[Rfam]
Rfam assigns this 131-nucleotide RNA from Monodelphis domestica to the family "Small nucleolar RNA SNORA84".
It is one of the family's seed sequences.

RNA sequence: GCCCUGUGGUUCCUGGAAGCCGGUGGUCAGUCCGGCCUUUCCGGGUGUAGACGGGCCCAGAGAAAGGCAGCAGUGAUGGAUGCGUGGGUCUGCACGCUGGCAGCCCCCACAGCCCGGUCACUGCCACAGGC
Numbered sequence: 001g002c003c004c005u006g007u008g009g010u011u012c013c014u015g016g017a018a019g020c021c022g023g024u025g026g027u028c029a030g031u032c033c034g035g036c037c038u039u040u041c042c043g044g045g046u047g048u049a050g051a052c053g054g055g056c057c058c059a060g061a062g063a064a065a066g067g068c069a070g071c072a073g074u075g076a077u078g079g080a081u082g083c084g085u086g087g088g089u090c091u092g093c094a095c096g097c098u099g100g101c102a103g104c105c106c107c108c109a110c111a112g113c114c115c116g117g118u119c120a121c122u123g124c125c126a127c128a129g130g131c
Stems, first nucleotide, its partner, number of pairs: 001057001003055002007049002011045003015041003019036005068123001073121005082113002084110004088105001090103004

By type it is an H/ACA-box small nucleolar RNA.